Rfam assigns this 173-nucleotide RNA sequence from Enterococcus sulfureus to the family "Lysine riboswitch aptamer". The match comes from Rfam's covariance-model search (80 bits). The base pairs follow the family's consensus structure, which is taken from published work.
[Rfam]
RNA sequence: CAUUGAGGUAGAGGUCGCGUGAGUCAUUAAUCCUGUCGAGUGGAGCAACACAAAGAAGCAGGCCUAGGGAGUCACGCCGAAAUCAAAAGAGAGUUGCUUCUUUUUUUUGAUUGGGGCGCAAAUCAAUAAUUUGCGAACUGUCUUAGCAUUUGCUAAGUUGCGCUAUGUUUUGU
Dot-bracket structure: .....(.((((.....((((((.((......(((((.....................)))))......)).))))))...((((((((((((........))))))))))))((..(((((((.....)))))))..))..((((((....)))))).....)))).).....
Numbered sequence: 001c002a003u004u005g006a007g008g009u010a011g012a013g014g015u016c017g018c019g020u021g022a023g024u025c026a027u028u029a030a031u032c033c034u035g036u037c038g039a040g041u042g043g044a045g046c047a048a049c050a051c052a053a054a055g056a057a058g059c060a061g062g063c064c065u066a067g068g069g070a071g072u073c074a075c076g077c078c079g080a081a082a083u084c085a086a087a088a089g090a091g092a093g094u095u096g097c098u099u100c101u102u103u104u105u106u107u108u109g110a111u112u113g114g115g116g117c118g119c120a121a122a123u124c125a126a127u128a129a130u131u132u133g134c135g136a137a138c139u140g141u142c143u144u145a146g147c148a149u150u151u152g153c154u155a156a157g158u159u160g161c162g163c164u165a166u167g168u169u170u171u172g173u
Stems, first nucleotide, its partner, number of pairs: 006168001008166004017077006024070002032062005081112012113139002117135007142157006